Notes
Shown here is a 104-nucleotide RNA from Vagococcus teuberi, a member of the family "trpB ncRNA motif". trpB ncRNA motif was reported as a strong cis regulatory motif candidate, with potential to be a cis regulatory riboswitch type, it have been identified in Firmicutes and Fusobacteria. The motif have been recognised upstream of an uncharacterized ABC transporter with strong homology to amino acid transporters. The base pairs follow the family's consensus structure, which is taken from published work. Lineage of the source: Bacteria > Bacillati > Bacillota > Lactobacillales > Vagococcus.

[Rfam]
RNA sequence: GGUAUAGAUACAACUUUUAGAAAUUUUUCUAAAGAAGUAUCUAUGCUUAGGGAUAACAGAUAUUCUACCGCAUAGACACCCUAUCUAUGCGGUUUUUUUGUGAC
Numbered sequence: 001g002g003u004a005u006a007g008a009u010a011c012a013a014c015u016u017u018u019a020g021a022a023a024u025u026u027u028u029c030u031a032a033a034g035a036a037g038u039a040u041c042u043a044u045g046c047u048u049a050g051g052g053a054u055a056a057c058a059g060a061u062a063u064u065c066u067a068c069c070g071c072a073u074a075g076a077c078a079c080c081c082u083a084u085c086u087a088u089g090c091g092g093u094u095u096u097u098u099u100g101u102g103a104c
Stems, first nucleotide, its partner, number of pairs: 001047011015035001016033005067093010

The literature on the family includes a 2024 paper in Nucleic Acids Res by Narunsky et al., "The discovery of novel noncoding RNAs in 50 bacterial genomes".